[Rfam]
RNA: SAM riboswitch aptamer (S box leader)
RNA sequence: CGCUUAUCAAGAAAGGCAGAGGGAAAUGGCCCUAUGAAGCCUUGACAACCUGUUUCGUGGCAACACGAAGUAAGGUGCCAAAUCCAGCCCGCACAGCGGGAACAGAUAAGUC
Numbered sequence: 001c002g003c004u005u006a007u008c009a010a011g012a013a014a015g016g017c018a019g020a021g022g023g024a025a026a027u028g029g030c031c032c033u034a035u036g037a038a039g040c041c042u043u044g045a046c047a048a049c050c051u052g053u054u055u056c057g058u059g060g061c062a063a064c065a066c067g068a069a070g071u072a073a074g075g076u077g078c079c080a081a082a083u084c085c086a087g088c089c090c091g092c093a094c095a096g097c098g099g100g101a102a103c104a105g106a107u108a109a110g111u112c
Stems, first nucleotide, its partner, number of pairs: 002111007013043005021032003027086003044079001046077002049075002053069002083104001088100005